[Rfam]
RNA sequence: GUGGGCUACGGUGACAUUUAUCCUAAAACGUUAUUAGGGAAAAUUGUAGGUGGCCUCUGCUGUAUUGCUGGGGUUCUGGUUAUUGCCCUCCCCAUCCCAAUCAUUGUGAACAAC
Number, nucleotide and partner (000 for none) at each position: 001g114002u113003g000004g111005g000006c000007u108008a107009c106010g105011g104012u000013g102014a101015c000016a000017u000018u000019u000020a095021u094022c000023c000024u000025a000026a000027a000028a000029c000030g000031u000032u000033a000034u000035u000036a000037g077038g076039g075040a074041a000042a000043a000044u000045u000046g000047u000048a000049g063050g000051u000052g000053g000054c000055c000056u000057c000058u000059g000060c000061u000062g000063u049064a000065u000066u000067g000068c000069u000070g000071g000072g000073g000074u040075u039076c038077u037078g000079g000080u000081u000082a000083u000084u000085g000086c000087c000088c000089u000090c000091c000092c000093c000094a021095u020096c000097c000098c000099a000100a000101u014102c013103a000104u011105u010106g009107u008108g007109a000110a000111c004112a000113a002114c001
Shown here is a 114-nucleotide RNA from Chrysochloris asiatica, a member of the family "Potassium channel RNA editing signal". Taxonomically the source falls in Chrysochloris (Eukaryota, Vertebrata, Sarcopterygii, Amniota). Pairs were carried over by alignment from the consensus structure, which is taken from published work. By type it is a cis-regulatory element. About the family: This family represents a group of sequences related to the human potassium channel Kv1.1 hairpin element which directs the efficient modification of an adenosine to inosine by an adenosine deaminase acting on RNA (ADAR). The ADAR modification causes an isoleucine/valine recoding event which lies in the ion-conducting pore of the potassium channel. It is thought that this editing event targets the process of fast inactivation and allows a more rapid recovery from inactivation at negative potentials. Its family is annotated with adenosine to inosine editing in the Gene Ontology.